[Rfam]
RNA sequence: AAGACUCGUUGUGGCAGGGUUGGGGUUUCUAUGCGGCAUGUGCCUUGUCUUUCAAUAUUGCAAUGCCCUUGGAAAUCCCAAAAAUGCCCAACACGUCC
Numbered sequence: 001a002a003g004a005c006u007c008g009u010u011g012u013g014g015c016a017g018g019g020u021u022g023g024g025g026u027u028u029c030u031a032u033g034c035g036g037c038a039u040g041u042g043c044c045u046u047g048u049c050u051u052u053c054a055a056u057a058u059u060g061c062a063a064u065g066c067c068c069u070u071g072g073a074a075a076u077c078c079c080a081a082a083a084a085u086g087c088c089c090a091a092c093a094c095g096u097c098c
Stems, first nucleotide, its partner, number of pairs: 008097001010095004014087003021080009031070001033068001035067005041062003
A member of the RNA family "mir-2788 microRNA precursor family" from Nasonia vitripennis, 98 nucleotides long. Pairs were carried over by alignment from the consensus structure, which was predicted with RNAalifold. The source organism's lineage runs through Eukaryota, Ecdysozoa, Pancrustacea, Hymenoptera and Nasonia. Its family is annotated with miRNA-mediated post-transcriptional gene silencing and RISC complex in the Gene Ontology.